[Rfam]
Rfam assigns this 197-nucleotide RNA sequence from Sporosarcina pasteurii to the family "6S / SsrS RNA".
Rfam describes the family as follows. E. coli 6S RNA was the first non coding RNA to be sequenced, but its function was unknown until recently. It consists of 184 nucleotides that fold into an extended hairpin structure with a large single-stranded internal bulge.
Rfam's curators put it in the seed alignment.

RNA sequence: UACAAGCUGCAUUGUUCGUAUCAUUAUUAAGUUUUAACCUUUAAGCUGUAAAAGGGAGUUUUAUGAUUGAAACUGAAAUGGCAAGCCUCGUUCUUUUAAUUAACAACGAGGACAGACAGGCAAGUUUCUGCGAACACCCACUUUGAGGAGUGGUGGUUUAAGACUUUCUAGAGACGUACGGCAGAGGCGGCUGAUAC
Numbered sequence: 001u002a003c004a005a006g007c008u009g010c011a012u013u014g015u016u017c018g019u020a021u022c023a024u025u026a027u028u029a030a031g032u033u034u035u036a037a038c039c040u041u042u043a044a045g046c047u048g049u050a051a052a053a054g055g056g057a058g059u060u061u062u063a064u065g066a067u068u069g070a071a072a073c074u075g076a077a078a079u080g081g082c083a084a085g086c087c088u089c090g091u092u093c094u095u096u097u098a099a100u101u102a103a104c105a106a107c108g109a110g111g112a113c114a115g116a117c118a119g120g121c122a123a124g125u126u127u128c129u130g131c132g133a134a135c136a137c138c139c140a141c142u143u144u145g146a147g148g149a150g151u152g153g154u155g156g157u158u159u160a161a162g163a164c165u166u167u168c169u170a171g172a173g174a175c176g177u178a179c180g181g182c183a184g185a186g187g188c189g190g191c192u193g194a195u196a197c
Stems, first nucleotide, its partner, number of pairs: 002195001005192006012184004017180003031164007038156002054139003058135004069128006080117001086111007